[Rfam]
Rfam assigns this 147-nucleotide RNA sequence from Mycoplana dimorpha to the family "Alphaproteobacterial sRNA ar35".
Pairs were carried over by alignment from the consensus structure.
The family has 13 seed sequences and 266 matches in Rfam 15.1.
RNA sequence: AUCGGUAUCGCUGAUGAGCGGUGGGAACGCUUCCGCACUCGCGAAUGCCGCAAUCGCAGUCUGACUUUAAGCACGGAUGUCCUAGCAAUGGGUGGAAUAGCGAUUGGUGAGGAAGGUCGGUGCGUUUUUCACACCGCCUUCUUUGUU
Numbered sequence: 001a002u003c004g005g006u007a008u009c010g011c012u013g014a015u016g017a018g019c020g021g022u023g024g025g026a027a028c029g030c031u032u033c034c035g036c037a038c039u040c041g042c043g044a045a046u047g048c049c050g051c052a053a054u055c056g057c058a059g060u061c062u063g064a065c066u067u068u069a070a071g072c073a074c075g076g077a078u079g080u081c082c083u084a085g086c087a088a089u090g091g092g093u094g095g096a097a098u099a100g101c102g103a104u105u106g107g108u109g110a111g112g113a114a115g116g117u118c119g120g121u122g123c124g125u126u127u128u129u130c131a132c133a134c135c136g137c138c139u140u141c142u143u144u145g146u147u
Stems, first nucleotide, its partner, number of pairs: 003050004008044002016040003020036001053104005059098001063093001065091001068088001071086002073083001107146010118136003122132001124130001

Lineage of the source: Bacteria > Pseudomonadati > Pseudomonadota > Alphaproteobacteria > Mycoplana. Rfam classes the family as a small RNA. For this family Rfam cites "A survey of sRNA families in alpha-proteobacteria" (del Val et al., RNA Biol, 2012).